RNA sequence: UUGCACAGUUGGCAAACCCGUCGAAAGGCGGGGACGCAAAGCCUCCGGUCUUACUGCCGCAAUGCAGAAGAUAGCGGGGCUGCCCUA
Numbered sequence: 001u002u003g004c005a006c007a008g009u010u011g012g013c014a015a016a017c018c019c020g021u022c023g024a025a026a027g028g029c030g031g032g033g034a035c036g037c038a039a040a041g042c043c044u045c046c047g048g049u050c051u052u053a054c055u056g057c058c059g060c061a062a063u064g065c066a067g068a069a070g071a072u073a074g075c076g077g078g079g080c081u082g083c084c085c086u087a
Stems, first nucleotide, its partner, number of pairs: 012037002017032006040081004045077003048072003055066003

Shown here is an 87-nucleotide RNA from Aquabacterium sp., a member of the family "c-di-GMP-I riboswitch aptamer".
The source organism's lineage runs through Bacteria, Pseudomonadota, Burkholderiales, Sphaerotilaceae and Aquabacterium.
Gene Ontology term of the family: cyclic-di-GMP binding.
The match comes from Rfam's covariance-model search (77 bits).
About the family: GEMM was predicted in a large-scale screen for bacterial structured RNA regulatory elements. Genes associated with GEMM are involved in a diverse array of functions, including chemotaxis regulation, signal transduction, secretion and chitin.